Shown here is a 103-nucleotide RNA sequence from Pectinatus cerevisiiphilus, a member of the family "SAM riboswitch aptamer (S box leader)". The SAM riboswitch is found upstream of a number of genes which code for proteins involved in methionine or cysteine biosynthesis in Gram-positive bacteria. Rfam links the family to the GO term regulation of gene expression.

RNA sequence: AGCUCAUCGAGAGCAGUGGAGGGACGGGCCCUGUGAAACUGCGGCAACCAUUGAUUUUAUCAAACGGUGCUAAUUCCUUUAGGUUUUACCUAUGAGAUGAGAG
Numbered sequence: 001a002g003c004u005c006a007u008c009g010a011g012a013g014c015a016g017u018g019g020a021g022g023g024a025c026g027g028g029c030c031c032u033g034u035g036a037a038a039c040u041g042c043g044g045c046a047a048c049c050a051u052u053g054a055u056u057u058u059a060u061c062a063a064a065c066g067g068u069g070c071u072a073a074u075u076c077c078u079u080u081a082g083g084u085u086u087u088a089c090c091u092a093u094g095a096g097a098u099g100a101g102a103g
Base pairs, nucleotide, nucleotide: 003101004100005099006098007097008096013042014041015040016039017038021031022030023029026078027077028076043071044070045069046068048067049066051063052062053061075095080092081091082090083089084088